A member of the RNA family "Small nucleolar RNA SNORA72" from Anolis carolinensis, 134 nucleotides long. NCBI's taxonomy places the organism under Eukaryota, Dipnotetrapodomorpha, Lepidosauria, Anolidae, Anolis. The sequence is in the family's curated seed alignment. The family has 29 seed sequences and 1,541 matches in Rfam 15.1. Rfam classes the family as an H/ACA-box small nucleolar RNA. A reference for the family is Ganot et al. (1997), "The family of box ACA small nucleolar RNAs is defined by an evolutionarily conserved secondary structure and ubiquitous sequence elements essential for RNA accumulation", Genes Dev.

RNA sequence: AUGCGAAUAAUUCUCGCUGUCCUGAUAUUUCCGUGAUCAGGGCAGGCUAGACAUUCGCUAUAUUAUUACUAUGCGGUGUGUCCCCAGGGUUGGUUCCUCUCCCUAGUCCUGGUUUUUAACUGCAAGUAACAUGU
Numbered sequence: 001a002u003g004c005g006a007a008u009a010a011u012u013c014u015c016g017c018u019g020u021c022c023u024g025a026u027a028u029u030u031c032c033g034u035g036a037u038c039a040g041g042g043c044a045g046g047c048u049a050g051a052c053a054u055u056c057g058c059u060a061u062a063u064u065a066u067u068a069c070u071a072u073g074c075g076g077u078g079u080g081u082c083c084c085c086a087g088g089g090u091u092g093g094u095u096c097c098u099c100u101c102c103c104u105a106g107u108c109c110u111g112g113u114u115u116u117u118a119a120c121u122g123c124a125a126g127u128a129a130c131a132u133g134u
Stems, first nucleotide, its partner, number of pairs: 003058003017045010068127003073123002084112010
From the family's description: U72 is a member of the H/ACA class of snoRNAs. The snoRNA gene is located in intron 4 of the ribosomal L30 protein gene in human, mouse and chicken.